[Rfam]
Nucleotides: 081
Base pairs, nucleotide, nucleotide: 018073019072020071022069023068027064028063032059033058034057038054039053040052041051042050
Number, partner (000 for none) and nucleotide at each position: 001000c002000u003000u004000g005000a006000g007000c008000u009000a010000u011000u012000g013000c014000g015000u016000u017000a018073g019072u020071g021000a022069u023068u024000g025000a026000a027064a028063c029000g030000g031000c032059a033058u034057c035000c036000u037000u038054u039053u040052u041051g042050c043000u044000u045000u046000u047000u048000c049000a050042g051041c052040a053039a054038a055000a056000a057034g058033a059032u060000a061000u062000a063028g064027u065000g066000u067000a068023a069022a070000g071020c072019a073018c074000g075000a076000c077000c078000c079000u080000u081000u
Rfam assigns this 81-nucleotide sequence from Tenacibaculum todarodis to the family "Flavo-1 RNA".
Taxonomically the source falls in Tenacibaculum (Bacteria, Flavobacteriia, Flavobacteriales, Flavobacteriaceae).
It scores 59 bits against the family's covariance model.
By type it is a small RNA.